[Rfam]
RNA: Bacterial large signal recognition particle RNA
RNA sequence: CCGUGCUAGGCGGGGAGCUAGCGGUGCCCUGUACCCGCAAUCCGCUAUAGCGGGGUGGAAUUCCCCUCUUAGGCCAAACCUGUUGGGCCGCUAUUGGAGGCUUACAACGUUGAUGGCCGGGUCCCACGCGGCGCAGGCUUGUGAACCCCGCCAGGUCCGAGAGGAAGCAACGGUAAACAGGUCCCUGCGGGUGCCGUGGGAACACCUGGACUGAGUUGAAGCACCAGAUAUGCCCAUAGGGUUUUCGUCAACGGGGGGUGCGCGG
Numbered sequence: 001c002c003g004u005g006c007u008a009g010g011c012g013g014g015g016a017g018c019u020a021g022c023g024g025u026g027c028c029c030u031g032u033a034c035c036c037g038c039a040a041u042c043c044g045c046u047a048u049a050g051c052g053g054g055g056u057g058g059a060a061u062u063c064c065c066c067u068c069u070u071a072g073g074c075c076a077a078a079c080c081u082g083u084u085g086g087g088c089c090g091c092u093a094u095u096g097g098a099g100g101c102u103u104a105c106a107a108c109g110u111u112g113a114u115g116g117c118c119g120g121g122u123c124c125c126a127c128g129c130g131g132c133g134c135a136g137g138c139u140u141g142u143g144a145a146c147c148c149c150g151c152c153a154g155g156u157c158c159g160a161g162a163g164g165a166a167g168c169a170a171c172g173g174u175a176a177a178c179a180g181g182u183c184c185c186u187g188c189g190g191g192u193g194c195c196g197u198g199g200g201a202a203c204a205c206c207u208g209g210a211c212u213g214a215g216u217u218g219a220a221g222c223a224c225c226a227g228a229u230a231u232g233c234c235c236a237u238a239g240g241g242u243u244u245u246c247g248u249c250a251a252c253g254g255g256g257g258g259u260g261c262g263c264g265g
Base pairs, nucleotide, nucleotide: 001265002264003263004262005261006260010056011055012030013029014028015027017025018024019023034054035053036052037051038050063258064257065256066255067254068253072249073248074247076245078242079241080240081239086235087234092230093229094227095226096225097224099222102220103219106217107216108215115211117209118208119207120206121205122204123200124199125198126197127196128195129191132189133188134187135186136185137182138181139180140179141178142177148173149172150171156165157164158163